About this RNA
The record is a 183-nucleotide sequence from Pseudocercospora fuligena, which matches "Small nucleolar RNA snR32" in Rfam. Gene Ontology terms of the family: RNA processing and nucleolus. On this family, see Balakin et al., Nucleic Acids Res 1993: "SnR31, snR32, and snR33: three novel, non-essential snRNAs from Saccharomyces cerevisiae". Pairs were carried over by alignment from the consensus structure, which was predicted with WAR. Taxonomically the source falls in Pseudocercospora (Eukaryota, Opisthokonta, Fungi, Dikarya).

[Rfam]
RNA sequence: UUCAUCUACAUUAUGGUGCCAGCUAAAAAACACAUUACUUACUGAUCGGCAGCUGGCUCAAUUGCAUUGGCUUGACUGUUUUCGCGCUGCGCAUAGAUUGAUUUGGUCCGUUGCUGGGCGCCGGUCUUUGAUUCCCUCGUUAUGGGGGCAAGGAGAAGAUCGGAAUCAGUUUGGGCCACAUCC
Numbered sequence: 001u002u003c004a005u006c007u008a009c010a011u012u013a014u015g016g017u018g019c020c021a022g023c024u025a026a027a028a029a030a031c032a033c034a035u036u037a038c039u040u041a042c043u044g045a046u047c048g049g050c051a052g053c054u055g056g057c058u059c060a061a062u063u064g065c066a067u068u069g070g071c072u073u074g075a076c077u078g079u080u081u082u083c084g085c086g087c088u089g090c091g092c093a094u095a096g097a098u099u100g101a102u103u104u105g106g107u108c109c110g111u112u113g114c115u116g117g118g119c120g121c122c123g124g125u126c127u128u129u130g131a132u133u134c135c136c137u138c139g140u141u142a143u144g145g146g147g148g149c150a151a152g153g154a155g156a157a158g159a160u161c162g163g164a165a166u167c168a169g170u171u172u173g174g175g176c177c178a179c180a181u182c183c
Base pairs, nucleotide, nucleotide: 017093018092019091021088023086031049034043036041050078051077052076053074055072056071057070106176107175108173110171121163122162125159126158127157128156129155132148133147134146135145136144